[Rfam]
RNA: Potassium channel RNA editing signal
RNA sequence: CUUAGGUACGGUGACAUGGUACCAAAGACCAUUGCUGGAAAGAUUUUUGGUUCCAUCUGUUCCCUAAGUGGUGUCUUAGUCAUUGCUCUGCCUGUUCCUGUGAUCGUCUCCAAC
Numbered sequence: 001c002u003u004a005g006g007u008a009c010g011g012u013g014a015c016a017u018g019g020u021a022c023c024a025a026a027g028a029c030c031a032u033u034g035c036u037g038g039a040a041a042g043a044u045u046u047u048u049g050g051u052u053c054c055a056u057c058u059g060u061u062c063c064c065u066a067a068g069u070g071g072u073g074u075c076u077u078a079g080u081c082a083u084u085g086c087u088c089u090g091c092c093u094g095u096u097c098c099u100g101u102g103a104u105c106g107u108c109u110c111c112a113a114c
Stems, first nucleotide, its partner, number of pairs: 002113001005110001008107004014101003018097002021095002037077002040074001049063002
Dot-bracket structure: .(..(..((((..(((.((.((..............((.(........((...........))..........).))................)))).)))..))))..)..).